A member of the RNA family "mir-877 microRNA precursor family" from Camelus dromedarius, 82 nucleotides long. Rfam 15.1 lists 186 matches to the family in 115 species. The organism belongs to Camelus, within Eukaryota. Gene Ontology terms of the family: RISC complex and miRNA-mediated post-transcriptional gene silencing.
RNA sequence: GUAGAGGAGAUGGCGCAGGGGACACUGCUGAGACUGGGGUCCCGGGACCUCCAAACAUGUGUCCUCUUCUCCCUCCUCCCAG
Numbered sequence: 001g002u003a004g005a006g007g008a009g010a011u012g013g014c015g016c017a018g019g020g021g022a023c024a025c026u027g028c029u030g031a032g033a034c035u036g037g038g039g040u041c042c043c044g045g046g047a048c049c050u051c052c053a054a055a056c057a058u059g060u061g062u063c064c065u066c067u068u069c070u071c072c073c074u075c076c077u078c079c080c081a082g
Stems, first nucleotide, its partner, number of pairs: 004078006012072002015069001017067009027056001035054001036051006